[Rfam]
RNA sequence: GGGCCAGAGCGGGAGUUUUGUCCGUUGUGUCCCGCGAAUCGCCGGCCGGAGGGAAGGGCCGUCAGGCCGGCGGGUGGCUU
Numbered sequence: 001g002g003g004c005c006a007g008a009g010c011g012g013g014a015g016u017u018u019u020g021u022c023c024g025u026u027g028u029g030u031c032c033c034g035c036g037a038a039u040c041g042c043c044g045g046c047c048g049g050a051g052g053g054a055a056g057g058g059c060c061g062u063c064a065g066g067c068c069g070g071c072g073g074g075u076g077g078c079u080u
Stems, first nucleotide, its partner, number of pairs: 001080006010034004040072008
A member of the RNA family "CyVA-1 RNA", 80 nucleotides long. Cyanobacteria, Acidobacteria (1 example), Verrucomicrobia (1 example). It is one of the family's seed sequences. By type it is a small RNA.